[Rfam]
A member of the RNA family "TPP riboswitch aptamer (THI element)" from Spiroplasma taiwanense, 89 nucleotides long. Its family is annotated with thiamine pyrophosphate binding in the Gene Ontology. Pairs were carried over by alignment from the consensus structure, which is taken from published work.

RNA sequence: UGAAAAAGGCAGAGGUAGCAAUUGCUUGAGAAAUACUCUUAGAACCUGAUCUAGUUAAUACUAGCGUAGGAAGUCCUUUAUAAAGACAA
Numbered sequence: 001u002g003a004a005a006a007a008g009g010c011a012g013a014g015g016u017a018g019c020a021a022u023u024g025c026u027u028g029a030g031a032a033a034u035a036c037u038c039u040u041a042g043a044a045c046c047u048g049a050u051c052u053a054g055u056u057a058a059u060a061c062u063a064g065c066g067u068a069g070g071a072a073g074u075c076c077u078u079u080a081u082a083a084a085g086a087c088a089a
Base pairs, nucleotide, nucleotide: 006077008075009074010073011039012038013037014036016033017026018025019024045070046069047068048067051064052063053062054061